[Rfam]
Description:
A member of the RNA family "ZMP/ZTP riboswitch aptamer (pfl RNA motif)" from Thermoflavimicrobium daqui, 84 nucleotides long.

RNA sequence: AUGAGGUACAGUAACUGGCGAGAAAGUGGAAGAAACCACAAGGGAGCUGUACGGAUCUGAAUGCCGCUCGCCUGGGCAAGAGAC
Numbered sequence: 001a002u003g004a005g006g007u008a009c010a011g012u013a014a015c016u017g018g019c020g021a022g023a024a025a026g027u028g029g030a031a032g033a034a035a036c037c038a039c040a041a042g043g044g045a046g047c048u049g050u051a052c053g054g055a056u057c058u059g060a061a062u063g064c065c066g067c068u069c070g071c072c073u074g075g076g077c078a079a080g081a082g083a084c
Stems, first nucleotide, its partner, number of pairs: 006052007015043002017072005026039004062078004
Dot-bracket structure: .....(((((((..(([[[[[....((((......))))..))..))))))).........((((..]]]]]..))))......

Gene Ontology terms of the family: one-carbon metabolic process and regulation of purine nucleotide biosynthetic process.
Lineage of the source: Bacteria > Bacilli > Caryophanales > Thermoactinomycetaceae > Thermoflavimicrobium.
The family's consensus secondary structure is taken from published work.